RNA sequence: AUCCAAGGUGAUUCCCUCUUCCAAGGGGCCUACUAAUGCCCUUUUUCAGGAAAGUAGCAACUUGGAAUAAAAUCUGGCAUGCCUCAGGUUUUCGGGGGAGAGGGGAUGUUUAUUUCCUUUGCCUUCCUUUGGCUGCCUACAUAU
Dot-bracket structure: .((((((.((.........((((((((((........)))))))....)))......)).))))))..........(..(......(......(.(((..............))).).......)......).)..........
Shown here is a 144-nucleotide sequence from Equus caballus, a member of the family "Small nucleolar RNA SNORA67". Rfam's curators write: U67 belongs to the H/ACA class of snoRNAs which are thought to guide the sites of modification of uridines to pseudouridines. The match comes from Rfam's covariance-model search (134 bits). Rfam links the family to the GO terms RNA processing and nucleolus.